The family of this 180-nucleotide sequence from Pseudomonas sp. SDI is "Pseudomonas sRNA P1". On this family, see Livny et al., Nucleic Acids Res 2006: "Identification of 17 Pseudomonas aeruginosa sRNAs and prediction of sRNA-encoding genes in 10 diverse pathogens using the bioinformatic tool sRNAPredict2". It is annotated as a non-coding RNA gene. It scores 151 bits against the family's covariance model.
[Rfam]
RNA sequence: ACCCCGGUAUUAUUGAUGUUAUGGGUUGCAGCCGAGCUUAGCCUUGUUCAUUUUUUUACACAACACCCCCGUAAAAAAUAGAACACGGCCCGCUCAACGUUGCCUGUGGUCGCCGGCCGGCGCCCUUGCAGACGCCCCCAAUUGCAGCAAAAAUGCCGCUUGAGCGCCGUUUUAGGGCAU
Numbered sequence: 001a002c003c004c005c006g007g008u009a010u011u012a013u014u015g016a017u018g019u020u021a022u023g024g025g026u027u028g029c030a031g032c033c034g035a036g037c038u039u040a041g042c043c044u045u046g047u048u049c050a051u052u053u054u055u056u057u058a059c060a061c062a063a064c065a066c067c068c069c070c071g072u073a074a075a076a077a078a079u080a081g082a083a084c085a086c087g088g089c090c091c092g093c094u095c096a097a098c099g100u101u102g103c104c105u106g107u108g109g110u111c112g113c114c115g116g117c118c119g120g121c122g123c124c125c126u127u128g129c130a131g132a133c134g135c136c137c138c139c140a141a142u143u144g145c146a147g148c149a150a151a152a153a154u155g156c157c158g159c160u161u162g163a164g165c166g167c168c169g170u171u172u173u174a175g176g177g178c179a180u
Stems, first nucleotide, its partner, number of pairs: 023105004028100001034093001036091001041089003044085001046084003052078008162180001164178002167175001